RNA sequence: UACUUCUAUUGGGUAUCCUCGAUUAAUGCAGCCUCAGAUGCU
Numbered sequence: 001u002a003c004u005u006c007u008a009u010u011g012g013g014u015a016u017c018c019u020c021g022a023u024u025a026a027u028g029c030a031g032c033c034u035c036a037g038a039u040g041c042u
Stems, first nucleotide, its partner, number of pairs: 008023004030042003